[Rfam]
RNA sequence: UACAUCGCUGAUGAUAUCUUGGCUCCCUCUACUGAAUUUGGUGAGGAAGACUGCCAUUGUUACCCAAUUUUUGUCUGAGAUGUA
Numbered sequence: 001u002a003c004a005u006c007g008c009u010g011a012u013g014a015u016a017u018c019u020u021g022g023c024u025c026c027c028u029c030u031a032c033u034g035a036a037u038u039u040g041g042u043g044a045g046g047a048a049g050a051c052u053g054c055c056a057u058u059g060u061u062a063c064c065c066a067a068u069u070u071u072u073g074u075c076u077g078a079g080a081u082g083u084a
Stems, first nucleotide, its partner, number of pairs: 001084006

A member of the RNA family "Small nucleolar RNA SNORD100" from Myripristis murdjan, 84 nucleotides long. Rfam links the family to the GO terms RNA processing and nucleolus. The match comes from Rfam's covariance-model search (79 bits). By type it is a C/D-box small nucleolar RNA. Clan: SNORD100 clan. The literature on the family includes a 2001 paper in EMBO J by Huttenhofer et al., "RNomics: an experimental approach that identifies 201 candidates for novel, small, non-messenger RNAs in mouse".